[Rfam]
RNA: UnaL2 LINE 3' element
Organism: Salmo trutta
RNA sequence: GCCAGGGCAAUAUGUAAGUUGCUCUGGAUAAGAGCGUCUGCUAAAUGACGUAAA
Numbered sequence: 001g002c003c004a005g006g007g008c009a010a011u012a013u014g015u016a017a018g019u020u021g022c023u024c025u026g027g028a029u030a031a032g033a034g035c036g037u038c039u040g041c042u043a044a045a046u047g048a049c050g051u052a053a054a
Base pairs, nucleotide, nucleotide: 013043014041015040016039020036021035022034023033024032025031